[Rfam]
RNA sequence: CCUUUCAUGAUGAAAUAUUGCGGAUGUAAACUUUUUGUCACGUCGGAAAGCGCAAAACCAUGUCGAGAUUUCCGUUGCCUUCCUUCUGAUUGCAAAG
Numbered sequence: 001c002c003u004u005u006c007a008u009g010a011u012g013a014a015a016u017a018u019u020g021c022g023g024a025u026g027u028a029a030a031c032u033u034u035u036u037g038u039c040a041c042g043u044c045g046g047a048a049a050g051c052g053c054a055a056a057a058c059c060a061u062g063u064c065g066a067g068a069u070u071u072c073c074g075u076u077g078c079c080u081u082c083c084u085u086c087u088g089a090u091u092g093c094a095a096a097g
Stems, first nucleotide, its partner, number of pairs: 003096003021074004

A member of the RNA family "Small nucleolar RNA Z13/snr52" from Trichoderma virens, 97 nucleotides long. The family's RNA type in Rfam is C/D-box small nucleolar RNA. Its family is annotated with RNA processing and nucleolus in the Gene Ontology. Rfam 15.1 lists 1,203 matches to the family in 866 species.